[Rfam]
RNA sequence: GAGCCAGCUUUAGCCUAGCGGUUCCUUCGCAAUCCGAGUAAUUGUUAUUCAACUAACUGCUAGUUUCUAGCAGUUCGAGUCCUGCGGGCGCUGCCUGGCUUUUUG
Numbered sequence: 001g002a003g004c005c006a007g008c009u010u011u012a013g014c015c016u017a018g019c020g021g022u023u024c025c026u027u028c029g030c031a032a033u034c035c036g037a038g039u040a041a042u043u044g045u046u047a048u049u050c051a052a053c054u055a056a057c058u059g060c061u062a063g064u065u066u067c068u069a070g071c072a073g074u075u076c077g078a079g080u081c082c083u084g085c086g087g088g089c090g091c092u093g094c095c096u097g098g099c100u101u102u103u104u105g
Stems, first nucleotide, its partner, number of pairs: 002100006013089004018085004026079004